[Rfam]
RNA: Plastid-ycf3 group II-D1 intron
RNA sequence: UCCCUUCUGUCGUGUAUCCUCGAUUAAUGCAACCUCAGAUGCU
Numbered sequence: 001u002c003c004c005u006u007c008u009g010u011c012g013u014g015u016a017u018c019c020u021c022g023a024u025u026a027a028u029g030c031a032a033c034c035u036c037a038g039a040u041g042c043u
Base pairs, nucleotide, nucleotide: 009024010023011022012021031043033041
Dot-bracket structure: ........((((........))))......(.(.......).)